[Rfam]
RNA sequence: UAUUAAGGGCGUAUGGGGAAUGCCUAGGCUCUCAGAGGCGAAGAAGGACGUGAUAAGCUGCGAAAAGCUGCGGGGAUUGGCACAUACAAAUUGAUCCGCAGAUAUCCGAAUGGGGCAACCCGGUAUAUUGAAGAUAUAUCAUCCGCAAGGAGGCAAACCCGGAGAACUGAAACAUCUAAGUACCCGGAGGAAGAGAAAACAAUAGUGAUUACGCUAGUAGCGGCGAGCGAACGCGUAAUAGCCCAAACCAUAAUGUUUACGGAUAUUAUGGGGUUGUAGGACCACGACAUUUGAGACUCGAUGAACUAGAACAAGUUGGAAAGCUUGGCCAUAGACGGUGAUAGCCCGGUAUAGGUAAAGGAAGUUAAGAUAGUGGUAUCCUGAGUAGUGCGGGGCACGUGAAACCCUGUAUGAAUCUGGCGGGACCAUCCGCCAAGGCUAAAUACUACUGAGAGACCGAUAGUGAACCAGUACCGUGAGGGAAAGGUGAAAAGAACCCUGAAUAAGGGAGUGAAAUAGAUCCUGAAACCAUACGCUUACAAG
Numbered sequence: 001u002a003u004u005a006a007g008g009g010c011g012u013a014u015g016g017g018g019a020a021u022g023c024c025u026a027g028g029c030u031c032u033c034a035g036a037g038g039c040g041a042a043g044a045a046g047g048a049c050g051u052g053a054u055a056a057g058c059u060g061c062g063a064a065a066a067g068c069u070g071c072g073g074g075g076a077u078u079g080g081c082a083c084a085u086a087c088a089a090a091u092u093g094a095u096c097c098g099c100a101g102a103u104a105u106c107c108g109a110a111u112g113g114g115g116c117a118a119c120c121c122g123g124u125a126u127a128u129u130g131a132a133g134a135u136a137u138a139u140c141a142u143c144c145g146c147a148a149g150g151a152g153g154c155a156a157a158c159c160c161g162g163a164g165a166a167c168u169g170a171a172a173c174a175u176c177u178a179a180g181u182a183c184c185c186g187g188a189g190g191a192a193g194a195g196a197a198a199a200c201a202a203u204a205g206u207g208a209u210u211a212c213g214c215u216a217g218u219a220g221c222g223g224c225g226a227g228c229g230a231a232c233g234c235g236u237a238a239u240a241g242c243c244c245a246a247a248c249c250a251u252a253a254u255g256u257u258u259a260c261g262g263a264u265a266u267u268a269u270g271g272g273g274u275u276g277u278a279g280g281a282c283c284a285c286g287a288c289a290u291u292u293g294a295g296a297c298u299c300g301a302u303g304a305a306c307u308a309g310a311a312c313a314a315g316u317u318g319g320a321a322a323g324c325u326u327g328g329c330c331a332u333a334g335a336c337g338g339u340g341a342u343a344g345c346c347c348g349g350u351a352u353a354g355g356u357a358a359a360g361g362a363a364g365u366u367a368a369g370a371u372a373g374u375g376g377u378a379u380c381c382u383g384a385g386u387a388g389u390g391c392g393g394g395g396c397a398c399g400u401g402a403a404a405c406c407c408u409g410u411a412u413g414a415a416u417c418u419g420g421c422g423g424g425a426c427c428a429u430c431c432g433c434c435a436a437g438g439c440u441a442a443a444u445a446c447u448a449c450u451g452a453g454a455g456a457c458c459g460a461u462a463g464u465g466a467a468c469c470a471g472u473a474c475c476g477u478g479a480g481g482g483a484a485a486g487g488u489g490a491a492a493a494g495a496a497c498c499c500u501g502a503a504u505a506a507g508g509g510a511g512u513g514a515a516a517u518a519g520a521u522c523c524u525g526a527a528a529c530c531a532u533a534c535g536c537u538u539a540c541a542a543g
Stems, first nucleotide, its partner, number of pairs: 007538010022523001023487002027458002029455007036447002038154002046107003049062003068101007077089003112121003122140007142151003158189001159187004169176002199206002209443001210237005220228002240440004248271007278382003282376004292369001295366004302359001306354003312327005330334001336348003388412008419434005474481002497509004